[Rfam]
Shown here is a 46-nucleotide sequence from Channa argus, a member of the family "Histone 3' UTR stem-loop". About the family: The mRNAs of metazoan histone genes lack a poly-A tail. 3' end processing occurs at a site between a highly conserved stem-loop (modelled by this family) and a purine rich region around 20 nts downstream (the histone downstream element, or HDE). The stem-loop is bound by a 31 kDa stem-loop binding protein (SLBP - also termed the histone hairpin binding protein, or HBP). Pairs were carried over by alignment from the consensus structure, which is taken from published work. NCBI's taxonomy places the organism under Eukaryota, Metazoa, Gnathostomata, Osteoglossocephalai, Channa.

RNA sequence: CCAAAGGCCCUUUUAAGGGCCACCCACUCUUCAUUGAAAGAGCAAU
Numbered sequence: 001c002c003a004a005a006g007g008c009c010c011u012u013u014u015a016a017g018g019g020c021c022a023c024c025c026a027c028u029c030u031u032c033a034u035u036g037a038a039a040g041a042g043c044a045a046u
Stems, first nucleotide, its partner, number of pairs: 006021006